[Rfam]
MIR9657 microRNA precursor family: an 86-nucleotide RNA sequence from Triticum aestivum. A search with the family's covariance model found it, with a score of 56 bits.
RNA sequence: GCGGCGUGGUGGCUUUGUUCGCCGGAGCAGCGUGCUGUGGAUUGAAUCCCGCGCGCUCCUCCAUCGAACGUGGCGGCCCACGUCGC
Number, nucleotide and partner (000 for none) at each position: 001g086002c085003g084004g083005c082006g081007u080008g079009g000010u076011g000012g074013c073014u072015u000016u070017g069018u068019u067020c066021g065022c000023c000024g062025g061026a000027g059028c000029a057030g056031c055032g054033u053034g052035c051036u000037g049038u000039g047040g000041a000042u000043u000044g000045a000046a000047u039048c000049c037050c000051g035052c034053g033054c032055g031056c030057u029058c000059c027060u000061c025062c024063a000064u000065c021066g020067a019068a018069c017070g016071u000072g014073g013074c012075g000076g010077c000078c000079c008080a007081c006082g005083u004084c003085g002086c001